[Rfam]
RNA sequence: AAUAUCCGGGCAAGUCCUACACGGCCAGCUCCCCACGAAUCCCCCCAGGGCUUGAUCGCAGCAAGGGUAGUGGGUUGUAGCGGCGCGAUGUAGACAGCUUGCCCACCC
Numbered sequence: 001a002a003u004a005u006c007c008g009g010g011c012a013a014g015u016c017c018u019a020c021a022c023g024g025c026c027a028g029c030u031c032c033c034c035a036c037g038a039a040u041c042c043c044c045c046c047a048g049g050g051c052u053u054g055a056u057c058g059c060a061g062c063a064a065g066g067g068u069a070g071u072g073g074g075u076u077g078u079a080g081c082g083g084c085g086c087g088a089u090g091u092a093g094a095c096a097g098c099u100u101g102c103c104c105a106c107c108c
Stems, first nucleotide, its partner, number of pairs: 008104008017093005022087002024084002
Shown here is a 108-nucleotide sequence from Porphyromonas sp. HMSC065F10, a member of the family "Bacteroidales small SRP". It scores 120 bits against the family's covariance model. It is annotated as a non-coding RNA gene. The source organism's lineage runs through Bacteria, Bacteroidota, Bacteroidia, Porphyromonadaceae and Porphyromonas. Its family is annotated with SRP-dependent cotranslational protein targeting to membrane, signal sequence recognition and signal recognition particle, plasma membrane targeting in the Gene Ontology. Its Rfam clan is "SRP clan".